[Rfam]
RNA sequence: UGCAGAUGAUGUGAAAACAUAAUUGCUAUCUGAGUGAUGCUGCUGACAUCUAUAACCACCAAGAUCGCUGAUGCA
Dot-bracket structure: ((((...................................................................))))
Numbered sequence: 001u002g003c004a005g006a007u008g009a010u011g012u013g014a015a016a017a018c019a020u021a022a023u024u025g026c027u028a029u030c031u032g033a034g035u036g037a038u039g040c041u042g043c044u045g046a047c048a049u050c051u052a053u054a055a056c057c058a059c060c061a062a063g064a065u066c067g068c069u070g071a072u073g074c075a
Stems, first nucleotide, its partner, number of pairs: 001075004
The family of this 75-nucleotide RNA sequence from Alectura lathami is "Small nucleolar RNA SNORD24".
Pairs were carried over by alignment from the consensus structure, which was predicted with PFOLD.
Lineage of the source: Eukaryota > Metazoa > Gnathostomata > Sarcopterygii > Alectura.
Gene Ontology terms of the family: RNA processing and nucleolus.
It is annotated as a C/D-box small nucleolar RNA.